[Rfam]
RNA sequence: AUGCACGUGAUGAAGCAAAGCAGUAUGAUUAAUGUCAUGAUACUGUAAACGCUUUCUGAUGCU
Numbered sequence: 001a002u003g004c005a006c007g008u009g010a011u012g013a014a015g016c017a018a019a020g021c022a023g024u025a026u027g028a029u030u031a032a033u034g035u036c037a038u039g040a041u042a043c044u045g046u047a048a049a050c051g052c053u054u055u056c057u058g059a060u061g062c063u
Stems, first nucleotide, its partner, number of pairs: 003062003012055005021045006
RNA: Small nucleolar RNA Z39
Organism: Cavia porcellus